[Rfam]
RNA sequence: GGGGUCGACAUGGCUUCGACGUGGGUCAAGAAGCAGAUCAGGGCGUGUCGAGCACCAGUACGCUCGUAAAUCCACUGGAAAACUACAAACGCCAACGACGAGCGUUUCGCUCUAGCCGCUUAAGGCUGGGCCACUGCACUAAUUUGUCUUUGGGUUAGGUAGGGCAACCUACAGCAGUGUUAUUUACAAAGAAUCGAAUCGGCCUGCGCCACGAAGUCCGGUUCUAAAACUUAGUGGAUCGCCAAGGAAAGGCCUGUCAAUUGGCACAGUCCAAGGUUAAAACUUAAAAUUAAUUGACUACACAUGUAGAACUGUCUGUGGACGGCUUGCGGACGGGGGUUCAAUUCCCCCCGACUCCACCA
Numbered sequence: 001g002g003g004g005u006c007g008a009c010a011u012g013g014c015u016u017c018g019a020c021g022u023g024g025g026u027c028a029a030g031a032a033g034c035a036g037a038u039c040a041g042g043g044c045g046u047g048u049c050g051a052g053c054a055c056c057a058g059u060a061c062g063c064u065c066g067u068a069a070a071u072c073c074a075c076u077g078g079a080a081a082a083c084u085a086c087a088a089a090c091g092c093c094a095a096c097g098a099c100g101a102g103c104g105u106u107u108c109g110c111u112c113u114a115g116c117c118g119c120u121u122a123a124g125g126c127u128g129g130g131c132c133a134c135u136g137c138a139c140u141a142a143u144u145u146g147u148c149u150u151u152g153g154g155u156u157a158g159g160u161a162g163g164g165c166a167a168c169c170u171a172c173a174g175c176a177g178u179g180u181u182a183u184u185u186a187c188a189a190a191g192a193a194u195c196g197a198a199u200c201g202g203c204c205u206g207c208g209c210c211a212c213g214a215a216g217u218c219c220g221g222u223u224c225u226a227a228a229a230c231u232u233a234g235u236g237g238a239u240c241g242c243c244a245a246g247g248a249a250a251g252g253c254c255u256g257u258c259a260a261u262u263g264g265c266a267c268a269g270u271c272c273a274a275g276g277u278u279a280a281a282a283c284u285u286a287a288a289a290u291u292a293a294u295u296g297a298c299u300a301c302a303c304a305u306g307u308a309g310a311a312c313u314g315u316c317u318g319u320g321g322a323c324g325g326c327u328u329g330c331g332g333a334c335g336g337g338g339g340u341u342c343a344a345u346u347c348c349c350c351c352c353g354a355c356u357c358c359a360c361c362a
Base pairs, nucleotide, nucleotide: 001358002357003356004355005354006353007352020331021330022329023328024327025326026325027324032319037315039314040313041312044306045305046304047303048302049066050065051064052063053062055078056077057076058075059074112130113129115126116125117124132179133178134177135176136175137174139158141156142155143154147192148191149190150189151188152187196224197223198222199221200220201219202218209237210236211235212234241277242276243275246272247271248270252265253264254263256298257297258296259295335351336350337349338348339347